[Rfam]
A member of the RNA family "Group II catalytic intron D1-D4-4" from Streptococcus agalactiae, 177 nucleotides long. A reference for the family is Bonen and Vogel (2001), "The ins and outs of group II introns", Trends Genet.

RNA sequence: UAACAGGUGAAAGUCCUGUCCUAACAAUUAACCAGUUCGGUUAGGUAGCUAUGGCAUACGUAUGCGGAGUAAUCCAAAUGCGGAAGCAAUGCCGACUAACGUUAUCCCCAGUAGGCUGAUAUUCAUUGGUCUUAUCUCAGUCCGUGGGAGCGAGCAAACCUACAGUCCGUAACGAAA
Dot-bracket structure: ...................(((((................))))).......(((((.(((((...((....))...)))).).....)))))......((((.............................................)))).((.............)).......
Numbered sequence: 001u002a003a004c005a006g007g008u009g010a011a012a013g014u015c016c017u018g019u020c021c022u023a024a025c026a027a028u029u030a031a032c033c034a035g036u037u038c039g040g041u042u043a044g045g046u047a048g049c050u051a052u053g054g055c056a057u058a059c060g061u062a063u064g065c066g067g068a069g070u071a072a073u074c075c076a077a078a079u080g081c082g083g084a085a086g087c088a089a090u091g092c093c094g095a096c097u098a099a100c101g102u103u104a105u106c107c108c109c110a111g112u113a114g115g116c117u118g119a120u121a122u123u124c125a126u127u128g129g130u131c132u133u134a135u136c137u138c139a140g141u142c143c144g145u146g147g148g149a150g151c152g153a154g155c156a157a158a159c160c161u162a163c164a165g166u167c168c169g170u171a172a173c174g175a176a177a
Stems, first nucleotide, its partner, number of pairs: 020045005053093005059083001060081004067074002100152004154170002
Record summary
The sequence is in the family's curated seed alignment. The base pairs follow the family's consensus structure. About the family: Group II introns are found in rRNA, tRNA and mRNA of organelles in fungi, plants and protists, and also in mRNA in bacteria.